[Rfam]
RNA sequence: AUGAUGGAUGCGGGAGAUGCUGCACCAGUUAGCAGAGCCGAAGGGGCGUCGUGGGCAAACUCUCAGGCAAAAGGACUGUAUCCGGACG
Numbered sequence: 001a002u003g004a005u006g007g008a009u010g011c012g013g014g015a016g017a018u019g020c021u022g023c024a025c026c027a028g029u030u031a032g033c034a035g036a037g038c039c040g041a042a043g044g045g046g047c048g049u050c051g052u053g054g055g056c057a058a059a060c061u062c063u064c065a066g067g068c069a070a071a072a073g074g075a076c077u078g079u080a081u082c083c084g085g086a087c088g
Stems, first nucleotide, its partner, number of pairs: 006083008020035004037068003040064002044062003050055001

Rfam assigns this 88-nucleotide RNA from Hornefia porci to the family "Glycine riboswitch aptamer". Lineage of the source: Bacteria > Bacillati > Bacillota > Anaerovoracaceae > Hornefia. The base pairs follow the family's consensus structure.